[Rfam]
RNA sequence: CGUCGACAAGGGUAACUCUGUUGGUUAUUAAGCAAAAGUCAGCAAAGGGCAUAGUAGCCAAACGCUCAUCGUAAUGGUUGGGACAUGAUGAGGGCC
Numbered sequence: 001c002g003u004c005g006a007c008a009a010g011g012g013u014a015a016c017u018c019u020g021u022u023g024g025u026u027a028u029u030a031a032g033c034a035a036a037a038g039u040c041a042g043c044a045a046a047g048g049g050c051a052u053a054g055u056a057g058c059c060a061a062a063c064g065c066u067c068a069u070c071g072u073a074a075u076g077g078u079u080g081g082g083a084c085a086u087g088a089u090g091a092g093g094g095c096c
Stems, first nucleotide, its partner, number of pairs: 002025001004023005010017002039046001048096003057089001059087001074086003
Shown here is a 96-nucleotide RNA sequence from Paraglaciecola sp. T6c, a member of the family "Group II catalytic intron D1-D4-1". It is one of the family's seed sequences. The source organism's lineage runs through Bacteria, Gammaproteobacteria, Alteromonadales, Alteromonadaceae and Paraglaciecola. Group II introns are found in rRNA, tRNA and mRNA of organelles in fungi, plants and protists, and also in mRNA in bacteria.